[Rfam]
Nucleotides: 131
Base pairs, nucleotide, nucleotide: 009121011119012118013117014116016114022108023107024106025105026104028102029101030100031099033097048086049085053080054079056077057076060073061072062071063070
Number, partner (000 for none) and nucleotide at each position: 001000a002000a003000a004000a005000u006000g007000c008000a009121c010000a011119u012118u013117a014116a015000u016114u017000a018000u019000c020000c021000u022108u023107a024106g025105g026104g027000g028102c029101a030100u031099g032000a033097g034000a035000u036000a037000a038000a039000c040000a041000a042000a043000a044000a045000c046000c047000c048086u049085g050000c051000a052000a053080a054079a055000a056077u057076a058000a059000g060073u061072u062071a063070g064000c065000a066000c067000a068000c069000c070063u071062u072061a073060a074000a075000a076057u077056g078000g079054u080053u081000c082000u083000a084000g085049c086048a087000c088000c089000a090000u091000u092000a093000c094000u095000a096000a097033c098000c099031u100030a101029u102028g103000g104026c105025u106024c107023u108022a109000a110000u111000a112000c113000c114016a115000u116014u117013u118012g119011a120000a121009g122000g123000g124000a125000a126000a127000a128000c129000c130000g131000c